RNA sequence: AUACUUAUCUGGCAGAGGGGAUACUAUAAUCUUGAAAGUGGGUCUCCCAGAGCAAGGCAUAUCCUUUGCACUUUGGGAUUGUUGACCUCUAUGAUUUCCUCAAAUGUGGGAAACCACACUGUAGUAACUUGUGGUAGUAGGGGGCAGCAUGUGCGUUCUGCUUCCGU
Dot-bracket structure: ...........((((.(((((..((((..........)))).))))).((((...(((..((((..........)).)).)))...)))).((.(((.((.......)).))).))..)))).................(((((.((.(......).)).)))))..